[Rfam]
RNA sequence: GAAUAACAUUUUUUGCUAUUUUUGACCAAUAACGCAAUGAUACGUAAGAUAAUUUUUUCACGUAUCAUUGUGUUAUUGGGCGGGAAUAUCAAAAUAGUGUUAUCC
Number, nucleotide and partner (000 for none) at each position: 001g000002a000003a103004u102005a101006a000007c000008a000009u000010u000011u094012u093013u092014u091015g090016c000017u088018a087019u086020u000021u084022u083023u082024g081025a000026c079027c078028a077029a076030u075031a074032a073033c072034g071035c070036a069037a068038u067039g066040a065041u064042a063043c062044g061045u060046a000047a058048g057049a056050u000051a000052a000053u000054u000055u000056u049057u048058u047059c000060a045061c044062g043063u042064a041065u040066c039067a038068u037069u036070g035071u034072g033073u032074u031075a030076u029077u028078g027079g026080g000081c024082g023083g022084g021085a000086a019087u018088a017089u000090c015091a014092a013093a012094a011095u000096a000097g000098u000099g000100u000101u005102a004103u003104c000105c000